[Rfam]
RNA: FMN riboswitch aptamer (RFN element)
Organism: Pasteurellaceae bacterium RH1A
RNA sequence: UUUAAUCUUCAGGGCAGGGUGAAAUUCCCGAUCGGCGGUAAAGUCCGCGAGCCGAGUGAGAACUUGGCAGGAACUGGUGAAAUUCCAGUACCGACAGUAUAGUCUGGAUGGAAGAAGAGCGAA
Number, nucleotide and partner (000 for none) at each position: 001u000002u000003u121004a000005a000006u118007c117008u116009u115010c114011a000012g000013g000014g000015c000016a000017g029018g028019g027020u000021g000022a000023a000024a000025u000026u000027c019028c018029c017030g000031a103032u102033c093034g092035g048036c047037g046038g045039u000040a000041a000042a000043g091044u090045c038046c037047g036048c035049g000050a000051g068052c067053c066054g000055a000056g000057u000058g000059a000060g000061a000062a000063c000064u000065u000066g053067g052068c051069a000070g000071g000072a000073a089074c088075u087076g086077g085078u000079g000080a000081a000082a000083u000084u000085c077086c076087a075088g074089u073090a044091c043092c034093g033094a000095c106096a105097g104098u000099a000100u000101a000102g032103u031104c097105u096106g095107g000108a000109u000110g000111g000112a000113a000114g010115a009116a008117g007118a006119g000120c000121g003122a000123a000